Rfam assigns this 95-nucleotide sequence from Anabarilius grahami to the family "Vault RNA". The family's RNA type in Rfam is non-coding RNA gene. It scores 48 bits against the family's covariance model. The base pairs follow the family's consensus structure, which is taken from published work. Rfam describes the family as follows. This family of RNAs are found as part of the enigmatic vault ribonucleoprotein complex.

RNA sequence: CCGUUGGUUUAGCUCAGUGGUUACUUCCUUUCUAACACGAAACGCAGUCUCAUGGGUGACCAGGGAUCGGACCUCGGGCUCUGUUCAACGUUUUU
Numbered sequence: 001c002c003g004u005u006g007g008u009u010u011a012g013c014u015c016a017g018u019g020g021u022u023a024c025u026u027c028c029u030u031u032c033u034a035a036c037a038c039g040a041a042a043c044g045c046a047g048u049c050u051c052a053u054g055g056g057u058g059a060c061c062a063g064g065g066a067u068c069g070g071a072c073c074u075c076g077g078g079c080u081c082u083g084u085u086c087a088a089c090g091u092u093u094u095u
Base pairs, nucleotide, nucleotide: 002090003089004088005087006086007085012079013078014077015076017075019073020072026071027070028069